[Rfam]
RNA: sraA
RNA sequence: AGGUAGUUGAGUAUAUGGGGAUGAAUGUAAGACAUUCAACGUUAUGUGCGAGAGAAAAGUAAAUGGGGGAAAAAUUUCCCCCAUUUACGCUAACC
Numbered sequence: 001a002g003g004u005a006g007u008u009g010a011g012u013a014u015a016u017g018g019g020g021a022u023g024a025a026u027g028u029a030a031g032a033c034a035u036u037c038a039a040c041g042u043u044a045u046g047u048g049c050g051a052g053a054g055a056a057a058a059g060u061a062a063a064u065g066g067g068g069g070a071a072a073a074a075u076u077u078c079c080c081c082c083a084u085u086u087a088c089g090c091u092a093a094c095c
Stems, first nucleotide, its partner, number of pairs: 008038001010036003016032001020028001061086011